This 361-nucleotide RNA from Affinundibacterium nitidum belongs to the Rfam family "transfer-messenger RNA". A search with the family's covariance model found it, with a score of 212 bits. Rfam describes the family as follows. Bacterial tmRNA, also known as 10Sa RNA or SsrA, is named for its dual tRNA and mRNA-like properties. A reference for the family is Williams (2002), "The tmRNA Website: invasion by an intron", Nucleic Acids Res.
[Rfam]
RNA sequence: GGGGACGACCUGGUUUCGACAGGGGUUGCAAAGCAGCGCAGGGCAUACCGAGGCCUGACUACCUCGUAAAUACAAUCAGAACUAUAUAACUGCAAACGAUAACUCGUACGCAUUAGCAGCUUAAUCGCUCGCUAGCUCUACACCACCUCUUCCCUAGGGUGGGCUGGCAACAGCAGUAGAGUCAUUCAUAGGGAAUCGUCCUAAGUUGGGUUACUUAGCUUAGGCCUAAAUAAUAGGUAACUCGUCUUAACGCAGCGUGUGCGUCCGCGUCGUCAAGAUUAAAUUAAAUGGCAGCACUAAGUAUGUAGAACUGUCUGUAGAGUGCUUCUGGACGCGGGUUCGAUUCCCGCCGUCUCCACCA
Numbered sequence: 001g002g003g004g005a006c007g008a009c010c011u012g013g014u015u016u017c018g019a020c021a022g023g024g025g026u027u028g029c030a031a032a033g034c035a036g037c038g039c040a041g042g043g044c045a046u047a048c049c050g051a052g053g054c055c056u057g058a059c060u061a062c063c064u065c066g067u068a069a070a071u072a073c074a075a076u077c078a079g080a081a082c083u084a085u086a087u088a089a090c091u092g093c094a095a096a097c098g099a100u101a102a103c104u105c106g107u108a109c110g111c112a113u114u115a116g117c118a119g120c121u122u123a124a125u126c127g128c129u130c131g132c133u134a135g136c137u138c139u140a141c142a143c144c145a146c147c148u149c150u151u152c153c154c155u156a157g158g159g160u161g162g163g164c165u166g167g168c169a170a171c172a173g174c175a176g177u178a179g180a181g182u183c184a185u186u187c188a189u190a191g192g193g194a195a196u197c198g199u200c201c202u203a204a205g206u207u208g209g210g211u212u213a214c215u216u217a218g219c220u221u222a223g224g225c226c227u228a229a230a231u232a233a234u235a236g237g238u239a240a241c242u243c244g245u246c247u248u249a250a251c252g253c254a255g256c257g258u259g260u261g262c263g264u265c266c267g268c269g270u271c272g273u274c275a276a277g278a279u280u281a282a283a284u285u286a287a288a289u290g291g292c293a294g295c296a297c298u299a300a301g302u303a304u305g306u307a308g309a310a311c312u313g314u315c316u317g318u319a320g321a322g323u324g325c326u327u328c329u330g331g332a333c334g335c336g337g338g339u340u341c342g343a344u345u346c347c348c349g350c351c352g353u354c355u356c357c358a359c360c361a
Stems, first nucleotide, its partner, number of pairs: 001357007020330007033318004038314004044305005049066005055079004060074001113135005119129001136181006143162002148159003151195001153193002198226001200224007209242006244279005250273003255268003259297004263292003334350005
Dot-bracket structure: (((((((............(((((((......((((.((((..((((((((((.[[[[.[.))))).......].]]]].................................(((((.(.........).)))))((((((.((...((([.[[..))).)).............))))))..........]].]..(.(((((((..[[[[[[...))))))).)..........]]]]]].(((((.(((..(((.[[[[[[[)))..))).)))))..........]]].]]]]...))))).....)))))))).....)))))))...(((((.......))))))))))))....